[Rfam]
RNA sequence: CCCUCUCUUGCUUCAACAGUGCUUGGAUGGAACAG
Numbered sequence: 001c002c003c004u005c006u007c008u009u010g011c012u013u014c015a016a017c018a019g020u021g022c023u024u025g026g027a028u029g030g031a032a033c034a035g
Stems, first nucleotide, its partner, number of pairs: 001035001004032001006031003010028001012027005017021001
RNA: Iron response element I
Organism: Bos taurus